[Rfam]
RNA sequence: UUACUCAGGAUUCUCUUCAUAACGUACAAGUCUUUCGCCUUUUACUAAAGACUUCCGUGGAGAGGAACACCAAUGAGUUGAACCUAUUUUUGGGGGGCGGCAGUAGCUCAGUCC
Numbered sequence: 001u002u003a004c005u006c007a008g009g010a011u012u013c014u015c016u017u018c019a020u021a022a023c024g025u026a027c028a029a030g031u032c033u034u035u036c037g038c039c040u041u042u043u044a045c046u047a048a049a050g051a052c053u054u055c056c057g058u059g060g061a062g063a064g065g066a067a068c069a070c071c072a073a074u075g076a077g078u079u080g081a082a083c084c085u086a087u088u089u090u091u092g093g094g095g096g097g098c099g100g101c102a103g104u105a106g107c108u109c110a111g112u113c114c
Base pairs, nucleotide, nucleotide: 003078004077005076006075009068011066012065013064014063015062016061017060018059019058028054029053030052031051032050033049034048035047094114096113097112098111100109
About this RNA: The family of this 114-nucleotide RNA sequence from Collichthys lucidus is "U5 spliceosomal RNA". The family's RNA type in Rfam is spliceosomal small nuclear RNA. Rfam's curators write: U5 RNA is a component of both types of known spliceosome. The precise function of this molecule is unknown, though it is known that the 5' loop is required for splice site selection and p220 binding, and that both the 3' stem-loop and the Sm site are important for Sm protein binding and cap methylation.